The record is a 134-nucleotide sequence from Cardiobacterium hominis, which matches "Y RNA-like" in Rfam.

[Rfam]
RNA sequence: CAGUCAAAUGCCGAAGGAAUUACAGCUUCCAACGCUCGUGGUCGCGGGUUCGAAUCCCGCCCCUGCCGCCAGCAAUGGCAGGGUAGCUCAGAGGUAGAGCACGUAACGAUUUCUUCACCCCUCGUUGACUGUCC
Dot-bracket structure: .((((((.....(((((((.................(((....(((((..[....)))))((((((((.......))))))))..((((....]..)))))))......)))))))........))))))....

In Deinococcus radiodurans Rsr is tethered via Y RNA to the exoribonuclease PNPase and channels single-stranded RNA into the PNPase cavity. By type it is a small RNA. The literature on the family includes a 2014 paper in RNA by Chen et al., "Bacterial noncoding Y RNAs are widespread and mimic tRNAs".